[Rfam]
RNA sequence: AUUGCAAUUUUAAGGCCGUAGCAGAAUUGUUCAUGGUACGGCCCUGCCAGAUCCUAACAUAUCUGCAAAUUCUGCU
Number, nucleotide and partner (000 for none) at each position: 001a000002u000003u000004g000005c000006a000007a000008u000009u000010u000011u000012a000013a000014g043015g042016c041017c040018g000019u000020a076021g075022c074023a073024g072025a071026a070027u000028u038029g037030u000031u000032c000033a000034u000035g000036g000037u029038a028039c000040g017041g016042c015043c014044c000045u000046g000047c000048c065049a064050g063051a062052u061053c000054c000055u000056a000057a000058c000059a000060u000061a052062u051063c050064u049065g048066c000067a000068a000069a000070u026071u025072c024073u023074g022075c021076u020
The record is a 76-nucleotide RNA sequence from Alligator mississippiensis, which matches "Mammalian CPEB3 ribozyme" in Rfam. The source organism's lineage runs through Eukaryota, Sauria, Crocodylia, Alligatorinae and Alligator. About the family: The mammalian CPEB3 ribozyme is a self cleaving RNA located in the second intron of the CPEB3 gene which belongs to a family of genes regulating messenger RNA polyadenylation.